[Rfam]
RNA sequence: GGCCUGAUGCCACUUCUCUGGUAGCUACGAGCUUUGACCAGAGAUGCUAUGAUUAGGCCAAUACAAAGUUGUUUCAACAUUUCACAUGUUGAUAGGAACCUGGGGAUGGCUUCUCUAUCUGUCCACAGAGCCGGUUUCUGUGAUUACAUUC
Dot-bracket structure: .((((((((...(.((((.(((.(((...)))....))).)))).)...).))))))).......................(((((........((...(((.(((((...........))))).)))..))......)))))........
Overview: Rfam assigns this 151-nucleotide RNA from Sorghum bicolor to the family "Small nucleolar RNA snoR2/U65". It is annotated as an H/ACA-box small nucleolar RNA. Lineage of the source: Eukaryota > Andropogonodae > Andropogoneae > Sorghinae > Sorghum. Its Rfam clan is "SNORA65 clan". It scores 136 bits against the family's covariance model.